[Rfam]
RNA: mir-393 microRNA precursor family
Organism: Chenopodium quinoa
RNA sequence: GAAGGAGGAAUCCAAAGGGAUCGCAUUGAUCCCAACUUACAAUUUAAUUUUUAAUUUUAUGGUUUCGUUUGGAUCAUGCAAUCUCUUUGGAUUUAUCCUU
Numbered sequence: 001g002a003a004g005g006a007g008g009a010a011u012c013c014a015a016a017g018g019g020a021u022c023g024c025a026u027u028g029a030u031c032c033c034a035a036c037u038u039a040c041a042a043u044u045u046a047a048u049u050u051u052u053a054a055u056u057u058u059a060u061g062g063u064u065u066c067g068u069u070u071g072g073a074u075c076a077u078g079c080a081a082u083c084u085c086u087u088u089g090g091a092u093u094u095a096u097c098c099u100u
Stems, first nucleotide, its partner, number of pairs: 002100005008094014023079004028075005
Dot-bracket structure: .(((((.((((((((((((((.((((.(((((......................................))))))))).)))))))))))))).)))))